[Rfam]
RNA sequence: GCCAUUCGACAGGGGUGCUCCGUAUCGCCGGGGCUGAGAUGAAGGCGCCAAGCCUUUGGACCCUAAAGCUGAUCUGGAUAAUACCAGCGGAGCGAGGCGGACCAUGUUCUCA
Numbered sequence: 001g002c003c004a005u006u007c008g009a010c011a012g013g014g015g016u017g018c019u020c021c022g023u024a025u026c027g028c029c030g031g032g033g034c035u036g037a038g039a040u041g042a043a044g045g046c047g048c049c050a051a052g053c054c055u056u057u058g059g060a061c062c063c064u065a066a067a068g069c070u071g072a073u074c075u076g077g078a079u080a081a082u083a084c085c086a087g088c089g090g091a092g093c094g095a096g097g098c099g100g101a102c103c104a105u106g107u108u109c110u111c112a
Stems, first nucleotide, its partner, number of pairs: 006100003010096001011064004016058001017034005041057005068093003074087004

TPP riboswitch aptamer (THI element): a 112-nucleotide RNA from Pelagibacterium lentulum.
The source organism's lineage runs through Bacteria, Alphaproteobacteria, Hyphomicrobiales, Devosiaceae and Pelagibacterium.
Pairs were carried over by alignment from the consensus structure, which is taken from published work.